[Rfam]
RNA sequence: GACGUCGGGAGCGACUGGCGUUGAGGUGGAUACCACCGGGAAGCCCCGACGGACCGAGAUCAACGGGACCGUUCGCCUGGGCCCCUCCG
Numbered sequence: 001g002a003c004g005u006c007g008g009g010a011g012c013g014a015c016u017g018g019c020g021u022u023g024a025g026g027u028g029g030a031u032a033c034c035a036c037c038g039g040g041a042a043g044c045c046c047c048g049a050c051g052g053a054c055c056g057a058g059a060u061c062a063a064c065g066g067g068a069c070c071g072u073u074c075g076c077c078u079g080g081g082c083c084c085c086u087c088c089g
Base pairs, nucleotide, nucleotide: 003051004050005049006048007047008046009045011044012043015040016039017077018076019075020074026036027035028034029033066084067083069081070080
Rfam assigns this 89-nucleotide sequence from Aeromicrobium terrae to the family "ZMP/ZTP riboswitch aptamer (pfl RNA motif)". Its family is annotated with one-carbon metabolic process and regulation of purine nucleotide biosynthetic process in the Gene Ontology. The match comes from Rfam's covariance-model search (47 bits). Pairs were carried over by alignment from the consensus structure, which is taken from published work.